RNA sequence: ACUCCUGCCUCGUGAUCGUCUUCUCACCUUUCACGCGGCAGGCGGAAAGGAGGGAGGCCCCCGCGAGGACGGGACUCGCGGGGGCCUCCU
Numbered sequence: 001a002c003u004c005c006u007g008c009c010u011c012g013u014g015a016u017c018g019u020c021u022u023c024u025c026a027c028c029u030u031u032c033a034c035g036c037g038g039c040a041g042g043c044g045g046a047a048a049g050g051a052g053g054g055a056g057g058c059c060c061c062c063g064c065g066a067g068g069a070c071g072g073g074a075c076u077c078g079c080g081g082g083g084g085c086c087u088c089c090u
Stems, first nucleotide, its partner, number of pairs: 004042006012034004018028001052090016
This 90-nucleotide sequence from Streptomyces sp. Ru71 belongs to the Rfam family "sodF sRNA". The pairing is the family consensus, mapped onto this sequence. A reference for the family is Kim et al. (2014), "Inverse regulation of Fe- and Ni-containing SOD genes by a Fur family regulator Nur through small RNA processed from 3'UTR of the sodF mRNA", Nucleic Acids Res. Taxonomically the source falls in Streptomyces (Bacteria, Bacillati, Kitasatosporales, Streptomycetaceae).